[Rfam]
RNA sequence: GUUGUACUACGACGUUGGUGACUGCCAUCAAGUUUUUUGAUCUAUGCCUUUAAAGAAAAGGGAAUCAACAGUUUUCGUGGCAGUAGACCGGGCAUGCACCCGGAAACUUAAAACGAAGAAAGUCGGUACCCACCUGGUUUAACCAGGUCAUAAACUUAGGUAAAACGGCGUCGCGGUAAACUA
Dot-bracket structure: ..(.((((.((((((..((..............(((.((((((................(((.(((.((..(((((((....((...(((((......)))))..)).....)))))))..)).))).))).............)))))).)))..........)).)))))).)))).)...